Shown here is a 102-nucleotide sequence from Bacillus sp. FJAT-26390, a member of the family "pan motif". It is annotated as a cis-regulatory element. It scores 45 bits against the family's covariance model.

[Rfam]
RNA sequence: CGGGCGGUAUUCUAACGGAAGCUGCACUGAUGACGAACAAAAAAUAUGUAAAUGGUUGGGAAUGCACACUCUGCUCUGAGCCGUAGGGACCGAGACAGAAGG
Numbered sequence: 001c002g003g004g005c006g007g008u009a010u011u012c013u014a015a016c017g018g019a020a021g022c023u024g025c026a027c028u029g030a031u032g033a034c035g036a037a038c039a040a041a042a043a044a045u046a047u048g049u050a051a052a053u054g055g056u057u058g059g060g061a062a063u064g065c066a067c068a069c070u071c072u073g074c075u076c077u078g079a080g081c082c083g084u085a086g087g088g089a090c091c092g093a094g095a096c097a098g099a100a101g102g
Stems, first nucleotide, its partner, number of pairs: 001029003004025005010020002071098003074094003078090001081088002